[Rfam]
RNA: U2 spliceosomal RNA
RNA sequence: ACCUUUCUCUUGCCUUGAUCCUUUGCUAACCCCCAACAGUGGCUUAGAUCAAGUGUAGUAUCUGUUCUUUUCAGGUAUGUAUCUCACUCUUCUUUUUUUUUUAUUAUUAUUAUUGAUCAUUGCUAACAUUAAAAAAAGGUUUAAUCUCUGAAACGGUCUAAGGACCAUUUUUUGAUUAUCCUUAUUUUUAGGCCUGGAGGCAUUGGCUCUUGCUUGCACAUCCUUUGCCUCAAAGUAUCACCAGUAUUACACUGCUUCUGGUUGAUGCGAAAUGAA
Numbered sequence: 001a002c003c004u005u006u007c008u009c010u011u012g013c014c015u016u017g018a019u020c021c022u023u024u025g026c027u028a029a030c031c032c033c034c035a036a037c038a039g040u041g042g043c044u045u046a047g048a049u050c051a052a053g054u055g056u057a058g059u060a061u062c063u064g065u066u067c068u069u070u071u072c073a074g075g076u077a078u079g080u081a082u083c084u085c086a087c088u089c090u091u092c093u094u095u096u097u098u099u100u101u102u103a104u105u106a107u108u109a110u111u112a113u114u115g116a117u118c119a120u121u122g123c124u125a126a127c128a129u130u131a132a133a134a135a136a137a138g139g140u141u142u143a144a145u146c147u148c149u150g151a152a153a154c155g156g157u158c159u160a161a162g163g164a165c166c167a168u169u170u171u172u173u174g175a176u177u178a179u180c181c182u183u184a185u186u187u188u189u190a191g192g193c194c195u196g197g198a199g200g201c202a203u204u205g206g207c208u209c210u211u212g213c214u215u216g217c218a219c220a221u222c223c224u225u226u227g228c229c230u231c232a233a234a235g236u237a238u239c240a241c242c243a244g245u246a247u248u249a250c251a252c253u254g255c256u257u258c259u260g261g262u263u264g265a266u267g268c269g270a271a272a273u274g275a276a
Stems, first nucleotide, its partner, number of pairs: 006048003012043003069153006155166004197231006211218002235268005240262005